This 138-nucleotide RNA sequence from Galemys pyrenaicus belongs to the Rfam family "Small nucleolar RNA SNORA5".
RNA sequence: AGCAGUCAAGUCAAAUUCAGCCCCUAUUCCUGUUGUGGUGGGGACUGGCCAAGAUGACUGCAACAGCAAGCUCCACAGCUCAUGGGCCCUGGGUCCCCCUGCCCUGGGGCCUGGGGAUAAGUUUGGUUGUGGACAUGG
Numbered sequence: 001a002g003c004a005g006u007c008a009a010g011u012c013a014a015a016u017u018c019a020g021c022c023c024c025u026a027u028u029c030c031u032g033u034u035g036u037g038g039u040g041g042g043g044a045c046u047g048g049c050c051a052a053g054a055u056g057a058c059u060g061c062a063a064c065a066g067c068a069a070g071c072u073c074c075a076c077a078g079c080u081c082a083u084g085g086g087c088c089c090u091g092g093g094u095c096c097c098c099c100u101g102c103c104c105u106g107g108g109g110c111c112u113g114g115g116g117a118u119a120a121g122u123u124u125g126g127u128u129g130u131g132g133a134c135a136u137g138g
Stems, first nucleotide, its partner, number of pairs: 002061004018047003022043007075130006087116003092112002
NCBI's taxonomy places the organism under Eukaryota, Opisthokonta, Dipnotetrapodomorpha, Talpidae, Galemys. ACA5 is a member of the H/ACA class of snoRNA that guide the sites of modification of uridines to pseudouridines.